[Rfam]
RNA sequence: UUGCAUAGUUUCUUAGCCCUAGCGGCUAAUGGCUGGUGGUUUUACAACCACCGGCCU
Dot-bracket structure: .............(((((.....)))))..((((((((((......)))))))))).

About this RNA: The family of this 57-nucleotide sequence from Vibrio aquimaris is "Pseudomonas sRNA P26". From the family's description: This small RNA (sRNA) was computationally identified in the genome of the opportunistic pathogen Pseudomonas aeruginosa and its expression verified by northern blot analysis. P26 is conserved across many Gammaproteobacteria species and appears to be consistently located between the DNA directed RNA polymerase (beta subunit) and 50S ribosomal protein L7/L12 genes. The family's consensus secondary structure was predicted with RNAalifold. The source organism's lineage runs through Bacteria, Gammaproteobacteria, Vibrionales, Vibrionaceae and Vibrio.